[Rfam]
RNA sequence: GCUCGGUGCCGCAAUAGUAAUUCAACUUAGUACGAGAGGAACCGUUGAUUCACAUAAUUGGUCAUUGCGUUUGGUUGAAAAGCCAGUGACGCGAAGCUACCAUGUGUAGGAUUAUGACUGAACGCCUCUAAGUCAGAAUCCAUGCUAGAAGCGGCGCUUUCUACCUCCCCGGUUGUUACCCGACUACCAAUAGGGGUGCUUCGUGCACCCCCAGAAGCAUGUGUCGAGAGCUCCCCCUCGUUGCCGGAACAUGGCGGCGUGGGCGCUUUGCAUUACAAUUCCAGACGAUCGGGGAGAUGAAUCCUUUGCAGACGACUUAAAUAUGGGACGAGGUAUUGUAAGUGGUAGAGUAGCCUUGCUGCUACGAUCCACUGAGAUUCCGCCUCACCGUCCCAACGAUUUGU
Numbered sequence: 001g002c003u004c005g006g007u008g009c010c011g012c013a014a015u016a017g018u019a020a021u022u023c024a025a026c027u028u029a030g031u032a033c034g035a036g037a038g039g040a041a042c043c044g045u046u047g048a049u050u051c052a053c054a055u056a057a058u059u060g061g062u063c064a065u066u067g068c069g070u071u072u073g074g075u076u077g078a079a080a081a082g083c084c085a086g087u088g089a090c091g092c093g094a095a096g097c098u099a100c101c102a103u104g105u106g107u108a109g110g111a112u113u114a115u116g117a118c119u120g121a122a123c124g125c126c127u128c129u130a131a132g133u134c135a136g137a138a139u140c141c142a143u144g145c146u147a148g149a150a151g152c153g154g155c156g157c158u159u160u161c162u163a164c165c166u167c168c169c170c171g172g173u174u175g176u177u178a179c180c181c182g183a184c185u186a187c188c189a190a191u192a193g194g195g196g197u198g199c200u201u202c203g204u205g206c207a208c209c210c211c212c213a214g215a216a217g218c219a220u221g222u223g224u225c226g227a228g229a230g231c232u233c234c235c236c237c238u239c240g241u242u243g244c245c246g247g248a249a250c251a252u253g254g255c256g257g258c259g260u261g262g263g264c265g266c267u268u269u270g271c272a273u274u275a276c277a278a279u280u281c282c283a284g285a286c287g288a289u290c291g292g293g294g295a296g297a298u299g300a301a302u303c304c305u306u307u308g309c310a311g312a313c314g315a316c317u318u319a320a321a322u323a324u325g326g327g328a329c330g331a332g333g334u335a336u337u338g339u340a341a342g343u344g345g346u347a348g349a350g351u352a353g354c355c356u357u358g359c360u361g362c363u364a365c366g367a368u369c370c371a372c373u374g375a376g377a378u379u380c381c382g383c384c385u386c387a388c389c390g391u392c393c394c395a396a397c398g399a400u401u402u403g404u
Stems, first nucleotide, its partner, number of pairs: 005158008015147004020050001022048005051106005059099003066093005071086006109141002115135005166295007299402005305319001308316001325394006331385003335378002342372004347368001350365005

A member of the RNA family "Eukaryotic large subunit ribosomal RNA" from Physcomitrium patens, 404 nucleotides of a longer RNA. The organism belongs to Physcomitrium, within Eukaryota. Clan: LSU clan. The base pairs follow the family's consensus structure, which is taken from published work. It scores 3372 bits against the family's covariance model.